[Rfam]
RNA sequence: UGCCCUUAUGGGGCAGGGCUUGCUUCAGUGGGGCUUUGGUGCUCACUGAGUCUCCCCCUUGAGUGUGUCACU
Numbered sequence: 001u002g003c004c005c006u007u008a009u010g011g012g013g014c015a016g017g018g019c020u021u022g023c024u025u026c027a028g029u030g031g032g033g034c035u036u037u038g039g040u041g042c043u044c045a046c047u048g049a050g051u052c053u054c055c056c057c058c059u060u061g062a063g064u065g066u067g068u069c070a071c072u
Stems, first nucleotide, its partner, number of pairs: 001067003005063004010058004015053001017052003025049008033040002
Dot-bracket structure: (((.((((.((((.(.(((.....((((((((((....)).)))))))))))).)))).)))).))).....

A member of the RNA family "mir-9229 microRNA precursor family" from Cnephaeus nilssonii, 72 nucleotides long. The source organism's lineage runs through Eukaryota, Metazoa, Craniata, Theria and Cnephaeus. A search with the family's covariance model found it, with a score of 73 bits.